[Rfam]
RNA sequence: CCGCUACUUGAAGUAGCGGUUUACAAAAAAAAAAAAUUGUUGUUGUUGUUGUUGUUGUUGUUGUGUAAUCAAGUUGUGCUUGCAACAUUUUGCCCAGGUAAAUCGCUACUCAGAGUAGCGAUUUAUAUAUAUAAACCGCUACUUGAUAUAGCGGUUUAUAUUUAUAAACCGCUACUUGAGAUAGCGGUUUAUAUUUAU
Number, nucleotide and partner (000 for none) at each position: 001c000002c000003g000004c000005u000006a000007c000008u000009u060010g059011a058012a000013g000014u000015a056016g055017c000018g000019g000020u000021u054022u000023a052024c051025a050026a049027a000028a000029a047030a046031a000032a044033a043034a000035a041036a000037u000038u000039g000040u000041u035042g000043u033044u032045g000046u030047u029048g000049u026050u025051g024052u023053u000054g021055u016056u015057g000058u011059u010060g009061u000062u000063g000064u000065g000066u000067a000068a000069u000070c000071a000072a000073g000074u000075u000076g000077u000078g000079c000080u000081u000082g000083c000084a000085a000086c000087a000088u000089u102090u101091u100092g099093c098094c000095c000096a000097g000098g093099u092100a091101a090102a089103u000104c120105g119106c118107u117108a116109c115110u000111c000112a000113g000114a000115g109116u108117a107118g106119c105120g104121a000122u000123u000124u000125a000126u000127a000128u000129a161130u160131a159132u158133a157134a000135a000136c000137c000138g000139c000140u000141a000142c000143u000144u000145g000146a000147u000148a000149u000150a000151g000152c000153g000154g000155u000156u000157u133158a132159u131160a130161u129162u000163u000164a000165u191166a190167a189168a188169c187170c186171g185172c184173u000174a000175c000176u000177u000178g000179a000180g000181a000182u000183a000184g172185c171186g170187g169188u168189u167190u166191a165192u000193a000194u000195u000196u000197a000198u000
Shown here is a 198-nucleotide RNA sequence, a member of the family "GcvB RNA". Rfam links the family to the GO terms mRNA binding and regulation of gene expression. From the family's description: The gcvB gene encodes a small untranslated RNA involved in expression of the dipeptide and oligopeptide transport systems in Escherichia coli. The literature on the family includes a 2000 paper in Mol Microbiol by Urbanowski et al., "The gcvB gene encodes a small untranslated RNA involved in expression of the dipeptide and oligopeptide transport systems in Escherichia coli". Rfam classes the family as a non-coding RNA gene. The match comes from Rfam's covariance-model search (51 bits).